[Rfam]
RNA: Small nucleolar RNA SNORA26
Organism: Menura novaehollandiae
RNA sequence: UUCUAUAUAUAUAAUAUAUAAGUAUAUAAAUAUAAAUAUAUAUAUAUAUAUAUUUAGACUCCAUAGCCCAGGACAGAGCUCUUCAGCAUUUUGGUGCCGAAACUCUCUGUUUUGGAAAAGGCAAGGAGCCACAGCU
Dot-bracket structure: .(.(((((((...((((.((..........)..).))))..))))))).)......(.((((.....(((((((.(((..........................))).))))))).........)))).)......